[Rfam]
Rfam assigns this 54-nucleotide RNA sequence from Salmo salar to the family "UnaL2 LINE 3' element". The eel long interspersed element (LINE) UnaL2 and its partner short interspersed element (SINE) share a conserved 3' tail containing a stem-loop that is critical for their retrotransposition. For this family Rfam cites "Solution structure of an RNA stem-loop derived from the 3' conserved region of eel LINE UnaL2" (Baba et al., RNA, 2004). NCBI's taxonomy places the organism under Eukaryota, Metazoa, Gnathostomata, Protacanthopterygii, Salmo.
RNA sequence: GGCACUCACUACUGUAAGGCGCUCUGGAUAAGAGUAUCUACUAAAUGACUAACA
Numbered sequence: 001g002g003c004a005c006u007c008a009c010u011a012c013u014g015u016a017a018g019g020c021g022c023u024c025u026g027g028a029u030a031a032g033a034g035u036a037u038c039u040a041c042u043a044a045a046u047g048a049c050u051a052a053c054a
Stems, first nucleotide, its partner, number of pairs: 013043001014041003021035005